The record is a 110-nucleotide RNA sequence from Tepidicaulis marinus, which matches "Manganese Mn2+ riboswitch aptamer (yybP-ykoY)" in Rfam. Rfam links the family to the GO term manganese ion binding. The literature on the family includes a 2001 paper in Curr Biol by Argaman et al., "Novel small RNA-encoding genes in the intergenic regions of Escherichia coli".

RNA sequence: CCAAAGCGCACCUUAGGGGAGUAGCCGCCCUCCAUUUUUAGGAGGGGCGCAUGUCAACAUAAUUGGCGGGCAUAUCCGCCAUGGCAUGUGCGCAACGCAGAAGCAUUGCC
Numbered sequence: 001c002c003a004a005a006g007c008g009c010a011c012c013u014u015a016g017g018g019g020a021g022u023a024g025c026c027g028c029c030c031u032c033c034a035u036u037u038u039u040a041g042g043a044g045g046g047g048c049g050c051a052u053g054u055c056a057a058c059a060u061a062a063u064u065g066g067c068g069g070g071c072a073u074a075u076c077c078g079c080c081a082u083g084g085c086a087u088g089u090g091c092g093c094a095a096c097g098c099a100g101a102a103g104c105a106u107u108g109c110c
Stems, first nucleotide, its partner, number of pairs: 029045003047091010064081007
Dot-bracket structure: ............................(((...........))).((((((((((.......(((((((....)))))))))))))))))...................